[Rfam]
RNA sequence: ACAUCAUCUUAAAACAGCCCGCAAAACCGUCUUAUUCACGAAGGGCUUACUGCCUGCGCGCGCACAUUCCAACGGCUUGCCUGCCCCGGAUGAACUGUUGAUAAAAAAGAGGGCCAGCAUCCGUUUCCAGACGGCCCUGAGUGGAUUGUGACGUAACAUGGCACCUUGCUGGCGCUCUCUUAUUAUUUCAUGCCAGUGCCCUCGUUAUGGCGCAAUCAGAGCU
Numbered sequence: 001a002c003a004u005c006a007u008c009u010u011a012a013a014a015c016a017g018c019c020c021g022c023a024a025a026a027c028c029g030u031c032u033u034a035u036u037c038a039c040g041a042a043g044g045g046c047u048u049a050c051u052g053c054c055u056g057c058g059c060g061c062g063c064a065c066a067u068u069c070c071a072a073c074g075g076c077u078u079g080c081c082u083g084c085c086c087c088g089g090a091u092g093a094a095c096u097g098u099u100g101a102u103a104a105a106a107a108a109g110a111g112g113g114c115c116a117g118c119a120u121c122c123g124u125u126u127c128c129a130g131a132c133g134g135c136c137c138u139g140a141g142u143g144g145a146u147u148g149u150g151a152c153g154u155a156a157c158a159u160g161g162c163a164c165c166u167u168g169c170u171g172g173c174g175c176u177c178u179c180u181u182a183u184u185a186u187u188u189c190a191u192g193c194c195a196g197u198g199c200c201c202u203c204g205u206u207a208u209g210g211c212g213c214a215a216u217c218a219g220a221g222c223u
Base pairs, nucleotide, nucleotide: 013187014186016184017183021036024033025032040181041180043178044177045176047151048150049149050148054144055143056142057141059139068094070092071091073088074087075084076083110138111137112136113135114134115133159171160170161169162168196213197212198211199210200209
RNA: Salmonella enterica sRNA STnc470